[Rfam]
RNA: mir-3957 microRNA precursor family
RNA sequence: UUGGUGGGAGCUCGGAGAGUGGAGCUGUGGGUGUCAGGGUCAGGCACACGCACAGCACCUCACUGAGCUCCUUCCAA
Numbered sequence: 001u002u003g004g005u006g007g008g009a010g011c012u013c014g015g016a017g018a019g020u021g022g023a024g025c026u027g028u029g030g031g032u033g034u035c036a037g038g039g040u041c042a043g044g045c046a047c048a049c050g051c052a053c054a055g056c057a058c059c060u061c062a063c064u065g066a067g068c069u070c071c072u073u074c075c076a077a
Stems, first nucleotide, its partner, number of pairs: 002076003006072010017061003021058001024056006031049004035044001